[Rfam]
RNA sequence: AUUGUGCGACAAACUCCGUCCAGAGGGUGGCCCCAUUCUUAGAACUCAUCACUGGGCAAAGUUUGUCGCACAAG
Numbered sequence: 001a002u003u004g005u006g007c008g009a010c011a012a013a014c015u016c017c018g019u020c021c022a023g024a025g026g027g028u029g030g031c032c033c034c035a036u037u038c039u040u041a042g043a044a045c046u047c048a049u050c051a052c053u054g055g056g057c058a059a060a061g062u063u064u065g066u067c068g069c070a071c072a073a074g
Base pairs, nucleotide, nucleotide: 005070006069007068008067009066010065011064012063013062014061018057019056021054022053023052
A member of the RNA family "mir-3 microRNA precursor family" from Anopheles stephensi, 74 nucleotides long. Its Rfam clan is "mir-3 clan".